RNA sequence: UCUUGCCUAGUGAAAAAAAACUGUGUUUUGGACUAGAGUUUCUGAUACUGCUACAUCGUGGUAGUAGUUGAAGACCAAACCCUUGGCUGUCUGAACUCAAAU
Numbered sequence: 001u002c003u004u005g006c007c008u009a010g011u012g013a014a015a016a017a018a019a020a021c022u023g024u025g026u027u028u029u030g031g032a033c034u035a036g037a038g039u040u041u042c043u044g045a046u047a048c049u050g051c052u053a054c055a056u057c058g059u060g061g062u063a064g065u066a067g068u069u070g071a072a073g074a075c076c077a078a079a080c081c082c083u084u085g086g087c088u089g090u091c092u093g094a095a096c097u098c099a100a101a102u
Base pairs, nucleotide, nucleotide: 003100004099005098008095039073040072041071042070046066047065048064049063050062051061

The family of this 102-nucleotide sequence from Panicum virgatum is "Small nucleolar RNA Z157/R69/R10". A reference for the family is Chen et al. (2003), "The high diversity of snoRNAs in plants: identification and comparative study of 120 snoRNA genes from Oryza sativa", Nucleic Acids Res. The organism belongs to Panicum sect. Hiantes, within Eukaryota. Its family is annotated with nucleolus and RNA processing in the Gene Ontology. The family's RNA type in Rfam is C/D-box small nucleolar RNA.